mir-590 microRNA precursor family: an 86-nucleotide RNA sequence from Cricetulus griseus. The base pairs follow the family's consensus structure, which was predicted with RNAalifold. A search with the family's covariance model found it, with a score of 92 bits. A reference for the family is Murchison et al. (2008), "Conservation of small RNA pathways in platypus", Genome Res.

RNA sequence: AGACAGUCAGAAAUGAGCUUAUUCAUAAAACUGCAGUAGCCUGCAGUAAGUCUGUAAUUUUGUGUAUAAGCUGGUCUCUGACUGAG
Numbered sequence: 001a002g003a004c005a006g007u008c009a010g011a012a013a014u015g016a017g018c019u020u021a022u023u024c025a026u027a028a029a030a031c032u033g034c035a036g037u038a039g040c041c042u043g044c045a046g047u048a049a050g051u052c053u054g055u056a057a058u059u060u061u062g063u064g065u066a067u068a069a070g071c072u073g074g075u076c077u078c079u080g081a082c083u084g085a086g
Base pairs, nucleotide, nucleotide: 004084005083006082007081008080009079010078011077013075014074016072017071018070019069020068021067022066024064025063026062027061028060029059030058032056033055034054035053036052